[Rfam]
RNA sequence: AACUCAGCUAGGGAGAGUCUAACAUAAUCACUGAUGAGACCUAGACGAAACUACACAUGUUGCAUCAUACUGUAGUCUGAUA
Number, nucleotide and partner (000 for none) at each position: 001a000002a018003c017004u016005c015006a000007g000008c044009u043010a042011g041012g040013g000014a000015g005016a004017g003018u002019c000020u000021a000022a000023c000024a000025u000026a000027a081028u080029c079030a078031c000032u000033g000034a000035u000036g000037a000038g046039a000040c012041c011042u010043a009044g008045a000046c038047g000048a000049a000050a076051c075052u074053a073054c072055a071056c000057a000058u000059g000060u000061u000062g000063c000064a000065u000066c000067a000068u000069a000070c000071u055072g054073u053074a052075g051076u050077c000078u030079g029080a028081u027082a000
RNA: RAGATH-1 hammerhead ribozyme
Organism: Sdahravirus coli